This 73-nucleotide RNA from Dankookia rubra belongs to the Rfam family "Makes More Granules Regulator RNA (mmgR)".
The source organism's lineage runs through Bacteria, Pseudomonadati, Alphaproteobacteria, Acetobacterales and Dankookia.
Rfam's curators write: SuhB later renamed mmgR (makes more granules regulator) was a putative non-coding RNA found multiple times in the Agrobacterium tumefaciens genome and related alpha-proteobacteria. Other non-coding RNAs uncovered in the same analysis include: speF, ybhL, metA, and serC.Several studies inSinorhizobium meliloti showed that suhB element is indeed a non-coding RNA:firstly it was detected on Northern blot and called Sm8RNA, secondly in an RNAseq study referred to as SmelC689.The mutant phenotype's (strain lacking the small RNA) cytoplasm contains higher content of polyhydroxybutyrate (PBH)storage granules than wild type strain.
It is annotated as a small RNA.
[Rfam]
RNA sequence: GCCUGCUGCUUUCUUGGACGUUUCCUCCCUAAACUCGGCAGCACCUCAGGGUGCUGCCUUUUUUUCGGCGGAA
Number, nucleotide and partner (000 for none) at each position: 001g000002c000003c000004u000005g000006c000007u000008g019009c000010u017011u016012u000013c000014u000015u000016g011017g010018a000019c008020g000021u000022u000023u000024c000025c000026u000027c000028c000029c000030u000031a000032a000033a000034c000035u000036c000037g058038g057039c056040a055041g054042c053043a052044c051045c050046u000047c000048a000049g000050g045051g044052u043053g042054c041055u040056g039057c038058c037059u000060u000061u000062u000063u000064u000065u000066c000067g000068g000069c000070g000071g000072a000073a000